[Rfam]
RNA sequence: AAUGUACAUAGAGGUGCAAUUUUCAUGGUAGUUAGUAACUGUUAAGAGUAGAAACACUCGUAUUACUAAUAAAGGGGAAAGUUGCCGAAAGAUACCAUUAGUUUUCUUAAUACUAUCUUGGUAGUUAUGCCUACAUAACAUAACUACUGUCAUAUCAAAGUAUAUGAUGCGCUAUUCGGUGU
Dot-bracket structure: .......((((....(((((((((......((((((((........................))))))))......)))))))))...((((((..((((.......))))..))))))((((((((((.........)))))))))).((((((......))))))....)))).......
Numbered sequence: 001a002a003u004g005u006a007c008a009u010a011g012a013g014g015u016g017c018a019a020u021u022u023u024c025a026u027g028g029u030a031g032u033u034a035g036u037a038a039c040u041g042u043u044a045a046g047a048g049u050a051g052a053a054a055c056a057c058u059c060g061u062a063u064u065a066c067u068a069a070u071a072a073a074g075g076g077g078a079a080a081g082u083u084g085c086c087g088a089a090a091g092a093u094a095c096c097a098u099u100a101g102u103u104u105u106c107u108u109a110a111u112a113c114u115a116u117c118u119u120g121g122u123a124g125u126u127a128u129g130c131c132u133a134c135a136u137a138a139c140a141u142a143a144c145u146a147c148u149g150u151c152a153u154a155u156c157a158a159a160g161u162a163u164a165u166g167a168u169g170c171g172c173u174a175u176u177c178g179g180u181g182u
Stems, first nucleotide, its partner, number of pairs: 008175004016085009031070008089119006097111004120148010150167006